[Rfam]
RNA sequence: AAGCGUUCUCAGGGCGGGGUGCAACUCCCCACCGGCGGUGAAGGCCAGGCAACCUGACGGUUGUGAUGGCACAAGCCCGCGAGCGCCCGUGCCCACCUGCGGCACGGGGUCAGCAGACCCGGUUGGAUUCCGGGGCCGACGGUACAGUCCGGAUGAAAGAGAGCGCGU
Numbered sequence: 001a002a003g004c005g006u007u008c009u010c011a012g013g014g015c016g017g018g019g020u021g022c023a024a025c026u027c028c029c030c031a032c033c034g035g036c037g038g039u040g041a042a043g044g045c046c047a048g049g050c051a052a053c054c055u056g057a058c059g060g061u062u063g064u065g066a067u068g069g070c071a072c073a074a075g076c077c078c079g080c081g082a083g084c085g086c087c088c089g090u091g092c093c094c095a096c097c098u099g100c101g102g103c104a105c106g107g108g109g110u111c112a113g114c115a116g117a118c119c120c121g122g123u124u125g126g127a128u129u130c131c132g133g134g135g136c137c138g139a140c141g142g143u144a145c146a147g148u149c150c151g152g153a154u155g156a157a158a159g160a161g162a163g164c165g166c167g168u
Stems, first nucleotide, its partner, number of pairs: 003166008017029003031148002033138002035080004075136002083114002118134005140151003
Source information
The record is a 168-nucleotide RNA from Variovorax sp. OV329, which matches "FMN riboswitch aptamer (RFN element)" in Rfam. Gene Ontology term of the family: FMN binding. The family's consensus secondary structure is taken from published work.